[Rfam]
Shown here is a 115-nucleotide RNA from Medicago truncatula, a member of the family "MIR2593 microRNA precursor family".
Rfam links the family to the GO terms miRNA-mediated post-transcriptional gene silencing and RISC complex.
The family's consensus secondary structure was predicted with RNAalifold.
The match comes from Rfam's covariance-model search (102 bits).
The organism belongs to Medicago, within Eukaryota.
RNA sequence: UUAUAAACAAAAUUCCACUUUUUAGAUACAUUGAAUAAUUAAUGUAUCUAGUCUUUAUUAUAGACUGCAUACAUUAAUUAUUCAAUGUAUCUAAAAAGUGGAGUUUUGCUUAUAA
Numbered sequence: 001u002u003a004u005a006a007a008c009a010a011a012a013u014u015c016c017a018c019u020u021u022u023u024a025g026a027u028a029c030a031u032u033g034a035a036u037a038a039u040u041a042a043u044g045u046a047u048c049u050a051g052u053c054u055u056u057a058u059u060a061u062a063g064a065c066u067g068c069a070u071a072c073a074u075u076a077a078u079u080a081u082u083c084a085a086u087g088u089a090u091c092u093a094a095a096a097a098g099u100g101g102a103g104u105u106u107u108g109c110u111u112a113u114a115a
Stems, first nucleotide, its partner, number of pairs: 002114005009107005015101011027089018049067004